[Rfam]
RNA sequence: GCCGCGAUGAGCUCAACUGGUGUUGGGUGCGGGCUUCAAACCCGUAGGUGAGUAGCACUCACAGCCGUUCGAUUCGGCCUUCGUGGC
Numbered sequence: 001g002c003c004g005c006g007a008u009g010a011g012c013u014c015a016a017c018u019g020g021u022g023u024u025g026g027g028u029g030c031g032g033g034c035u036u037c038a039a040a041c042c043c044g045u046a047g048g049u050g051a052g053u054a055g056c057a058c059u060c061a062c063a064g065c066c067g068u069u070c071g072a073u074u075c076g077g078c079c080u081u082c083g084u085g086g087c
Stems, first nucleotide, its partner, number of pairs: 001087007009079001012027006028046006048062005064078004